[Rfam]
A member of the RNA family "BsrG" from Domibacillus epiphyticus, 279 nucleotides long. Its family is annotated with toxin activity and autolysis in the Gene Ontology. Lineage of the source: Bacteria > Bacillota > Bacilli > Bacillaceae > Domibacillus. From the family's description: bsrE, bsrG and bsrH pair through intermolecular interactions with antisense sRNAs. They form type I toxin/antitoxin system that includes an mRNA encoding for a short, toxic peptide (bsrE, bsrG and bsrH) and an antitoxin that is comprised of an antisense RNA. bsrG encodes a 39-amino-acid toxin, and the 180 nucleotide antisense sRNA called SR4 acts as the antitoxin (they overlap by 123 nucleotides).

RNA sequence: AACAAUAGAAUUGGUUUCUCAAGGGUGGUCGGCGCACUCCUCUGUAUAACACAACAGUUUACGGAGAAGGGGGUGAUGCCGAUGACGGUUUUUGAAUCGUUAAUGUUCGCAAUUGCUUUCGCGGGUUUAAUUGUUUCAAUUCUGUCAUUCCAUAAGAAAAAAUAAAACCGCCCUUGAGUUUUAGCGAGCUCGGGCGGUUUUAAACUGCUGCUGUUGCGCUGAUCCCCAUAUUGGGAACCUGCUAUUGUUAUCGCCGUUUCGAUGUGUCCAGCAUCGACG
Dot-bracket structure: ((((.(((.((((((..((((((((.(.(.....(((((((...........................)))))))........(((((........(.(..........)).........(.(...........).)....)))))...................).)..)))))))).........((.................)).........)))))((((......))))...).))).)))).....((..(((((((.....)))))))))
Numbered sequence: 001a002a003c004a005a006u007a008g009a010a011u012u013g014g015u016u017u018c019u020c021a022a023g024g025g026u027g028g029u030c031g032g033c034g035c036a037c038u039c040c041u042c043u044g045u046a047u048a049a050c051a052c053a054a055c056a057g058u059u060u061a062c063g064g065a066g067a068a069g070g071g072g073g074u075g076a077u078g079c080c081g082a083u084g085a086c087g088g089u090u091u092u093u094g095a096a097u098c099g100u101u102a103a104u105g106u107u108c109g110c111a112a113u114u115g116c117u118u119u120c121g122c123g124g125g126u127u128u129a130a131u132u133g134u135u136u137c138a139a140u141u142c143u144g145u146c147a148u149u150c151c152a153u154a155a156g157a158a159a160a161a162a163u164a165a166a167a168c169c170g171c172c173c174u175u176g177a178g179u180u181u182u183a184g185c186g187a188g189c190u191c192g193g194g195c196g197g198u199u200u201u202a203a204a205c206u207g208c209u210g211c212u213g214u215u216g217c218g219c220u221g222a223u224c225c226c227c228a229u230a231u232u233g234g235g236a237a238c239c240u241g242c243u244a245u246u247g248u249u250a251u252c253g254c255c256g257u258u259u260c261g262a263u264g265u266g267u268c269c270a271g272c273a274u275c276g277a278c279g
Stems, first nucleotide, its partner, number of pairs: 001249004006244003010240001011222005018178008027168001029166001035075007084146005097111001099110001121137001123135001188208002223236004255279002259277007